[Rfam]
RNA sequence: GGAGUUGGCCAGGUAAUCGCUGCUUCACUUCGGUGAAGGGGAGGAAAGUCCGGGCUCCAAAGGGCAGGGUGCCAGGUAACACCUGGGGAGCGAAAGCUCACGACAAGUGCAGCAGAGAGUAAACCGCCGAUGGCACGCAAGUGAACAGGUAAGGCUGAAAGGGUGCGGUAAGAGCGCACCGCACAACUGGCAACAGUUUGUGGCAAGGUAAACUCCACCCGGAGCAAGGCCAAAUAGGCCCCUAAGGACGCGGCCCGCGUUUGGGGGCGGGUAGGCUGCUUGAGCCAGCGAGCGAUUGCUGGCCUAGACGAAUGAUUAUCCACGACAGAACCCGGCUUAUCGGCCAACUCCAUCC
Dot-bracket structure: ((((((((((((((((((.((.((((((....)))))).))....[[[.[[[[[((((...[[[[.((((((((((.....)))))(((((....)))).)((...((((.............(((((..((.(((....)))..)))))..)).......((((((.......))))))(((((((((....))).))))).)...))..)))))))))))))...((((......((((((...(((((.]]]]))))).)))))).....))))......((((((((....))))))))..........)))))))..........]]]]]]]].).))))))))))....
Numbered sequence: 001g002g003a004g005u006u007g008g009c010c011a012g013g014u015a016a017u018c019g020c021u022g023c024u025u026c027a028c029u030u031c032g033g034u035g036a037a038g039g040g041g042a043g044g045a046a047a048g049u050c051c052g053g054g055c056u057c058c059a060a061a062g063g064g065c066a067g068g069g070u071g072c073c074a075g076g077u078a079a080c081a082c083c084u085g086g087g088g089a090g091c092g093a094a095a096g097c098u099c100a101c102g103a104c105a106a107g108u109g110c111a112g113c114a115g116a117g118a119g120u121a122a123a124c125c126g127c128c129g130a131u132g133g134c135a136c137g138c139a140a141g142u143g144a145a146c147a148g149g150u151a152a153g154g155c156u157g158a159a160a161g162g163g164u165g166c167g168g169u170a171a172g173a174g175c176g177c178a179c180c181g182c183a184c185a186a187c188u189g190g191c192a193a194c195a196g197u198u199u200g201u202g203g204c205a206a207g208g209u210a211a212a213c214u215c216c217a218c219c220c221g222g223a224g225c226a227a228g229g230c231c232a233a234a235u236a237g238g239c240c241c242c243u244a245a246g247g248a249c250g251c252g253g254c255c256c257g258c259g260u261u262u263g264g265g266g267g268c269g270g271g272u273a274g275g276c277u278g279c280u281u282g283a284g285c286c287a288g289c290g291a292g293c294g295a296u297u298g299c300u301g302g303c304c305u306a307g308a309c310g311a312a313u314g315a316u317u318a319u320c321c322a323c324g325a326c327a328g329a330a331c332c333c334g335g336c337u338u339a340u341c342g343g344c345c346a347a348c349u350c351c352a353u354c355c
Stems, first nucleotide, its partner, number of pairs: 001351010011340001012320007020041002023038006046338003050335005055224004062256004067220005072086005087101001088099004102215002107213002109209002124154002126150003131147002134143003162180006181204001182202005187196003228277004238268006247261005284303008